[Rfam]
RNA sequence: UGUAGAAUGCUGUGUAAGUCACUAUGGAUAAGAGUGUCUGCUAAAUGCCUGUAA
Numbered sequence: 001u002g003u004a005g006a007a008u009g010c011u012g013u014g015u016a017a018g019u020c021a022c023u024a025u026g027g028a029u030a031a032g033a034g035u036g037u038c039u040g041c042u043a044a045a046u047g048c049c050u051g052u053a054a
Stems, first nucleotide, its partner, number of pairs: 013043001014041003020036004025031001

Background:
The family of this 54-nucleotide sequence from Anguilla anguilla is "UnaL2 LINE 3' element". A search with the family's covariance model found it, with a score of 56 bits. The family has 30 seed sequences and 493,311 matches in Rfam 15.1. Lineage of the source: Eukaryota > Metazoa > Craniata > Vertebrata > Anguilla. It is annotated as a cis-regulatory element. The base pairs follow the family's consensus structure, which is taken from published work. Rfam's curators write: The eel long interspersed element (LINE) UnaL2 and its partner short interspersed element (SINE) share a conserved 3' tail containing a stem-loop that is critical for their retrotransposition. Presumably, the first step of retrotransposition is the recognition of their 3' tails by UnaL2-encoded reverse transcriptase. The solution structure of a 17-nucleotide RNA derived from the 3' tail of UnaL2 was determined by NMR.